[Rfam]
RNA sequence: GAAUAGCCUUGUUAGGUGAGGCGUCUGUACGAGAGAUACGCUACUGCCCAGAAAUGUCGAAAGACACCAAUGGGUUACCAGGAAUUUUCGAAUUAAGGGGAUUUUUAAUGUAGCUGGGGUUUUACCCCUAUGCCGUACAGUGCUAAAGCUCAAUGAAGAGGUCAUUA
Dot-bracket structure: .....((((((([.(((..(((..(((((((.(......(((((.(((((....((((....))))....))))).....((((..(((......])))..))))....))))).(((.......)))....)))))))).)))...)))..))...))))).....
Numbered sequence: 001g002a003a004u005a006g007c008c009u010u011g012u013u014a015g016g017u018g019a020g021g022c023g024u025c026u027g028u029a030c031g032a033g034a035g036a037u038a039c040g041c042u043a044c045u046g047c048c049c050a051g052a053a054a055u056g057u058c059g060a061a062a063g064a065c066a067c068c069a070a071u072g073g074g075u076u077a078c079c080a081g082g083a084a085u086u087u088u089c090g091a092a093u094u095a096a097g098g099g100g101a102u103u104u105u106u107a108a109u110g111u112a113g114c115u116g117g118g119g120u121u122u123u124a125c126c127c128c129u130a131u132g133c134c135g136u137a138c139a140g141u142g143c144u145a146a147a148g149c150u151c152a153a154u155g156a157a158g159a160g161g162u163c164a165u166u167a
Stems, first nucleotide, its partner, number of pairs: 006162005011154002013096001015150003020144003025140007033133001040114005046075005055066004081105004087099003116128003
A member of the RNA family "M-box riboswitch aptamer (ykoK leader)" from Jeotgalibaca sp. PTS2502, 167 nucleotides long. Lineage of the source: Bacteria > Bacillati > Bacillota > Bacilli > Jeotgalibaca. A search with the family's covariance model found it, with a score of 136 bits. Rfam 15.1 lists 1,095 matches to the family in 932 species.